Overview
Rfam assigns this 391-nucleotide RNA from Oxynema acuminatum to the family "Bacterial RNase P class A". Pairs were carried over by alignment from the consensus structure, which is taken from published work. Its family is annotated with dimeric ribonuclease P complex, tRNA processing and ribonuclease P activity in the Gene Ontology.
[Rfam]
Nucleotides: 391
Stems, first nucleotide, its partner, number of pairs: 001387008010379003013334007021038007043375003047372005052238004061266002066233003070230002072086005087101001088099004102228002107226002109222003123169002125165003130160003177195006197217001198215007242291003245287001249277006257271003261267001298317008
Number, partner (000 for none) and nucleotide at each position: 001387a002386g003385a004384g005383u006382u007381g008380g009000c010379g011378c012377a013334g014333g015332c016331a017330g018329u019328u020000g021038c022037g023036g024035a025034u026033u027032c028000u029000g030000a031000u032027g033026a034025a035024u036023c037022u038021g039000a040000g041000g042000a043375a044374a045373g046000u047372c048371c049370g050369g051368g052238c053237u054236c055235c056000c057000g058000a059000a060000a061266g062265a063000c064000c065000a066233g067232a068231c069000u070230u071229g072086c073085u074084g075083g076082g077000u078000a079000a080000c081000g082076c083075c084074c085073a086072g087101u088099g089098c090097g091096g092000g093000u094000g095000a096091c097090c098089g099088u100000g101087a102228g103227g104000a105000u106000a107226g108225u109222g110221c111220c112000a113000c114000a115000g116000a117000a118000a119000g120000a121000u122000a123169c124168c125165g126164c127163c128000g129000a130160u131159g132158g133000a134000g135000g136000g137000a138000u139000g140000g141000u142000c143000c144000c145000g146000u147000u148000g149000g150000g151000c152000g153000a154000u155000c156000g157000c158132u159131c160130a161000c162000a163127g164126g165125u166000a167000a168124g169123g170000g171000u172000g173000c174000a175000a176000a177195g178194g179193u180192g181191u182190g183000u184000u185000a186000a187000g188000a189000g190182c191181g192180c193179a194178c195177c196000a197217g198215c199214a200213g201212g202211g203210u204209c205000g206000a207000g208000a209204g210203g211202c212201c213200c214199u215198g216000g217197c218000u219000c220111g221110g222109u223000a224000a225108a226107c227103c228102c229071c230070g231068g232067u233066u234000g235055g236054g237053a238052g239000c240000a241000a242291g243290g244289u245287c246000a247000g248000a249277g250276g251275g252274a253273c254272a255000a256000g257271g258270g259269u260000u261267g262000g263000u264000c265062u266061u267261u268000u269259g270258c271257c272254u273253g274252u275251c276250c277249c278000g279000c280000u281000u282000a283000a284000g285000a286000a287245g288000a289244a290243c291242c292000g293000c294000u295000a296000g297000a298317g299316g300315c301314u302313u303312c304311u305310g306000g307000u308000a309000a310305c311304a312303g313302a314301g315300g316299u317298c318000c319000c320000a321000g322000a323000u324000a325000g326000a327000u328019a329018a330017c331016u332015g333014c334013c335000c336000c337000a338000u339000u340000c341000c342000u343000g344000g345000c346000a347000a348000u349000u350000g351000u352000c353000a354000u355000g356000a357000a358000u359000g360000g361000a362000a363000c364000a365000g366000a367000a368051c369050c370049c371048g372047g373045c374044u375043u376000a377012u378011g379010u380008c381007u382006g383005a384004c385003u386002c387001u388000c389000u390000c391000c